[Rfam]
RNA sequence: UGUGGGUGCUCUCGCAACACUACCUUGUGAACUCGGUCAGGUCUGGAAGGAAGCAGCCGUAGCAGGCGACGUGUGUGCCGAGAUGUCUCUGGCGGGG
Numbered sequence: 001u002g003u004g005g006g007u008g009c010u011c012u013c014g015c016a017a018c019a020c021u022a023c024c025u026u027g028u029g030a031a032c033u034c035g036g037u038c039a040g041g042u043c044u045g046g047a048a049g050g051a052a053g054c055a056g057c058c059g060u061a062g063c064a065g066g067c068g069a070c071g072u073g074u075g076u077g078c079c080g081a082g083a084u085g086u087c088u089c090u091g092g093c094g095g096g097g
Stems, first nucleotide, its partner, number of pairs: 005090002008087001010083005015075001017074004024066005034059004042051003
Dot-bracket structure: ....((.(.((((((.((((...(((((.....((((....(((....)))....))))..)))))....)))))...)))))...).)).......